[Rfam]
RNA sequence: ACCAAAGAGGUAGGUCCCAGUACUGCUGGGAUCCUUGCAGUACUGGGACCUUCCUCUUUGGU
Numbered sequence: 001a002c003c004a005a006a007g008a009g010g011u012a013g014g015u016c017c018c019a020g021u022a023c024u025g026c027u028g029g030g031a032u033c034c035u036u037g038c039a040g041u042a043c044u045g046g047g048a049c050c051u052u053c054c055u056c057u058u059u060g061g062u
Stems, first nucleotide, its partner, number of pairs: 001062010012051015028034002